mir-320 microRNA precursor family: a 47-nucleotide RNA from Pan troglodytes. It is one of the family's seed sequences. Lineage of the source: Eukaryota > Opisthokonta > Tetrapoda > Hominidae > Pan. On this family, see Berezikov et al., Genome Res 2006: "Many novel mammalian microRNA candidates identified by extensive cloning and RAKE analysis". Gene Ontology terms of the family: cellular response to glucose stimulus, long-term synaptic potentiation and negative regulation of gene expression.
[Rfam]
RNA sequence: UUCUCUUCCCAGUUCUUCUUGGAGUCAGGAAAAGCUGGGUUGAGAGG
Numbered sequence: 001u002u003c004u005c006u007u008c009c010c011a012g013u014u015c016u017u018c019u020u021g022g023a024g025u026c027a028g029g030a031a032a033a034g035c036u037g038g039g040u041u042g043a044g045a046g047g
Stems, first nucleotide, its partner, number of pairs: 001046005008039005016031006